The family of this 59-nucleotide RNA from Salmo salar is "mir-33 microRNA precursor family".
Pairs were carried over by alignment from the consensus structure, which was predicted with PFOLD.
Rfam's curators put it in the seed alignment.
[Rfam]
RNA sequence: GUGCAUUGUAGUUGCAUUGCAUGUGUCUCAGCUGGGUGCAAUGUUCCUGCAGUGCAAGA
Numbered sequence: 001g002u003g004c005a006u007u008g009u010a011g012u013u014g015c016a017u018u019g020c021a022u023g024u025g026u027c028u029c030a031g032c033u034g035g036g037u038g039c040a041a042u043g044u045u046c047c048u049g050c051a052g053u054g055c056a057a058g059a
Base pairs, nucleotide, nucleotide: 002056003055004054005053006052007051008050009049010048011047014044016042017041018040019039020038021037022036